This 64-nucleotide sequence from Pusillimonas sp. ANT_WB101 belongs to the Rfam family "Fluoride riboswitch aptamer (crcB RNA motif)". The source organism's lineage runs through Bacteria, Pseudomonadati, Betaproteobacteria, Burkholderiales and Pusillimonas. The match comes from Rfam's covariance-model search (50 bits).

RNA sequence: UACUUACAAGGAGAUGGCAUUCUUCCUUUAACUGCCUCUAUCGGCUGAUGAUGCCUACCAAACA
Numbered sequence: 001u002a003c004u005u006a007c008a009a010g011g012a013g014a015u016g017g018c019a020u021u022c023u024u025c026c027u028u029u030a031a032c033u034g035c036c037u038c039u040a041u042c043g044g045c046u047g048a049u050g051a052u053g054c055c056u057a058c059c060a061a062a063c064a
Stems, first nucleotide, its partner, number of pairs: 010026004016055006034045003